[Rfam]
A member of the RNA family "Guanidine-II riboswitch aptamer (mini-ykkC)" from Magnetospirillum gryphiswaldense, 47 nucleotides long. The source organism's lineage runs through Bacteria, Pseudomonadati, Alphaproteobacteria, Rhodospirillaceae and Magnetospirillum gryphiswaldense MSR-1.

RNA sequence: CUCCGGGGACGACCCCGGAGGGUUCGCGCCAAGCCGGGACGGCCCGG
Numbered sequence: 001c002u003c004c005g006g007g008g009a010c011g012a013c014c015c016c017g018g019a020g021g022g023u024u025c026g027c028g029c030c031a032a033g034c035c036g037g038g039a040c041g042g043c044c045c046g047g
Stems, first nucleotide, its partner, number of pairs: 001020008034047005